About this RNA:
The record is a 330-nucleotide RNA sequence from Anaerosalibacter massiliensis, which matches "Group I catalytic intron" in Rfam. For this family Rfam cites "Self-splicing of group I introns" (Cech, Annu Rev Biochem, 1990). The family's consensus secondary structure is taken from published work.
RNA sequence: ACAUAAAGAUGAGGAAACUAUUUACGGGUCCCUCAAAGAGUAAUUUUUGAGAGAAAAUUGGGUGAAUUGCUGGAACUUCCUAAAGCUCUACUUCCUACAACGUAGUUGGAAACAGCAAACGUGAAAGGUUUAGAAUAGUAGAGAUGAAACAAUGGAUAAUCAGCAGCCAAGCUCCUGUACUGAAAAGUUGGAGAAGGUUCAACGACUAGGAUAUACCACCUAAGGUUUUGCUAUGGUGAUGAAGUCUAUAGGAGAAGAGGUCCUCCAAAGUGCCCAACAGCCACAAUAUUAUGGUUGAAGAUAUAGUCUGGCAUAUAUUGAAAGAUAUGU
Number, nucleotide and partner (000 for none) at each position: 001a000002c000003a000004u000005a033006a000007a000008g030009a029010u028011g000012a000013g025014g000015a000016a000017a000018c000019u000020a000021u000022u000023u000024a000025c013026g000027g000028g010029u009030c008031c000032c000033u005034c000035a000036a000037a046038g045039a044040g000041u000042a000043a000044u039045u038046u037047u000048u000049g000050a000051g000052a000053g000054a000055a000056a000057a000058u277059u276060g275061g274062g000063u272064g271065a000066a000067u000068u165069g164070c163071u162072g161073g160074a000075a000076c000077u000078u156079c155080c154081u000082a000083a000084a000085g000086c000087u000088c000089u000090a000091c000092u000093u000094c000095c000096u000097a000098c000099a000100a000101c000102g000103u000104a000105g000106u000107u000108g000109g000110a000111a000112a000113c000114a000115g000116c000117a000118a000119a000120c000121g000122u000123g000124a000125a000126a000127g000128g000129u000130u000131u000132a000133g000134a000135a000136u000137a000138g000139u000140a000141g000142a000143g000144a000145u000146g000147a000148a000149a000150c000151a000152a000153u000154g080155g079156a078157u000158a000159a000160u073161c072162a071163g070164c069165a068166g198167c197168c000169a000170a000171g000172c000173u191174c190175c000176u000177g000178u000179a000180c000181u000182g000183a000184a000185a000186a000187g000188u000189u000190g174191g173192a000193g000194a000195a000196g000197g167198u166199u000200c000201a000202a309203c000204g308205a307206c306207u305208a304209g000210g000211a000212u000213a000214u000215a000216c000217c000218a000219c000220c000221u000222a000223a000224g000225g000226u000227u000228u000229u000230g000231c000232u000233a000234u000235g000236g000237u000238g000239a000240u000241g000242a000243a000244g000245u000246c000247u000248a000249u000250a000251g000252g000253a000254g000255a000256a000257g000258a000259g000260g000261u000262c000263c000264u000265c000266c000267a000268a000269a000270g000271u064272g063273c000274c061275c060276a059277a058278c000279a000280g295281c294282c293283a292284c000285a000286a000287u291288a000289u000290u000291a287292u283293g282294g281295u280296u000297g000298a000299a000300g000301a000302u000303a000304u208305a207306g206307u205308c204309u202310g000311g000312c000313a000314u000315a328316u327317a326318u325319u324320g000321a000322a000323a000324g319325a318326u317327a316328u315329g000330u000
About the family: Group I catalytic introns are large self-splicing ribozymes.